RNA: Small nucleolar RNA SNORA40
RNA sequence: AUAGCUAUUACAGAGUUCAGGUUCAAUGAGUAGACCCAAACAUGAAAGUCAGUUACAGAACUAAAUACUCCUUUGAUAUCCAGAAUUCAUUGUUCAGUGUGAGUUUUGAUAUUUAUAAGAAGAAAUAGA
Numbered sequence: 001a002u003a004g005c006u007a008u009u010a011c012a013g014a015g016u017u018c019a020g021g022u023u024c025a026a027u028g029a030g031u032a033g034a035c036c037c038a039a040a041c042a043u044g045a046a047a048g049u050c051a052g053u054u055a056c057a058g059a060a061c062u063a064a065a066u067a068c069u070c071c072u073u074u075g076a077u078a079u080c081c082a083g084a085a086u087u088c089a090u091u092g093u094u095c096a097g098u099g100u101g102a103g104u105u106u107u108g109a110u111a112u113u114u115a116u117a118a119g120a121a122g123a124a125a126u127a128g129a
Base pairs, nucleotide, nucleotide: 002055003054004053005052006051009048015041016040017039020036021035022034027032065126066125069122072119073118074117075116081108082107083106084105085104086103087102088101089100090099